RNA sequence: GGAACAUGUACUCGUUGCGGGGCAACGAUCACAAAGGA
Numbered sequence: 001g002g003a004a005c006a007u008g009u010a011c012u013c014g015u016u017g018c019g020g021g022g023c024a025a026c027g028a029u030c031a032c033a034a035a036g037g038a
Stems, first nucleotide, its partner, number of pairs: 013027006
Selenocysteine insertion sequence 4: a 38-nucleotide sequence from Texcoconibacillus texcoconensis.
On this family, see Graentzdoerffer et al., Arch Microbiol 2001: "Molecular analysis of the grd operon coding for genes of the glycine reductase and of the thioredoxin system from Clostridium sticklandii".
The family's consensus secondary structure was predicted with PFOLD.
Taxonomically the source falls in Texcoconibacillus (Bacteria, Bacillati, Bacillota, Caryophanales).
The family has 24 seed sequences and 436 matches in Rfam 15.1.